[Rfam]
RNA: Plastid-rps18 3UTR RNA
RNA sequence: UUGAAGUAUUUUAUGAUUAAGAAGCAACUGCCUCUUGUACAGAUGGUGUAUUAAUCU
Numbered sequence: 001u002u003g004a005a006g007u008a009u010u011u012u013a014u015g016a017u018u019a020a021g022a023a024g025c026a027a028c029u030g031c032c033u034c035u036u037g038u039a040c041a042g043a044u045g046g047u048g049u050a051u052u053a054a055u056c057u
Stems, first nucleotide, its partner, number of pairs: 018037005024031002